Overview:
A member of the RNA family "Ribosomal protein L20 leader" from Lactovum miscens, 147 nucleotides long. The literature on the family includes a 1994 paper in Prog Nucleic Acid Res Mol Biol by Zengel and Lindahl, "Diverse mechanisms for regulating ribosomal protein synthesis in Escherichia coli". NCBI's taxonomy places the organism under Bacteria, Bacillota, Bacilli, Lactobacillales, Lactovum. The match comes from Rfam's covariance-model search (60 bits). By type it is a cis-regulatory leader. From the family's description: This family is a putative r-protein leader autoregulatory structure found in B. subtilis and other low-GC Gram-positive bacteria. It is located in the 5' untranslated regions of mRNAs encoding initiation factor 3 followed by ribosomal proteins L35 and L20 (infC-rpmI-rplT). A Rho-independent transcription terminator structure that is probably involved in regulation is included at the 3' end.

RNA sequence: GUUGUAAAGCAGAAGCACCCGCUUCUCGCCUAAGUACUUUCCAUGAUAAAUUCAUGUGAACAGUUUUGGGCUAACAGAUGAAAUUAUUCUUAAAAUGAAUUUCAUUUUUGCGGGGUGCUGCUAGGCGCCUCGUUUUUGUUUUAUCAA
Numbered sequence: 001g002u003u004g005u006a007a008a009g010c011a012g013a014a015g016c017a018c019c020c021g022c023u024u025c026u027c028g029c030c031u032a033a034g035u036a037c038u039u040u041c042c043a044u045g046a047u048a049a050a051u052u053c054a055u056g057u058g059a060a061c062a063g064u065u066u067u068g069g070g071c072u073a074a075c076a077g078a079u080g081a082a083a084u085u086a087u088u089c090u091u092a093a094a095a096u097g098a099a100u101u102u103c104a105u106u107u108u109u110g111c112g113g114g115g116u117g118c119u120g121c122u123a124g125g126c127g128c129c130u131c132g133u134u135u136u137u138g139u140u141u142u143a144u145c146a147a
Stems, first nucleotide, its partner, number of pairs: 011026006028071003034066001036064003110133009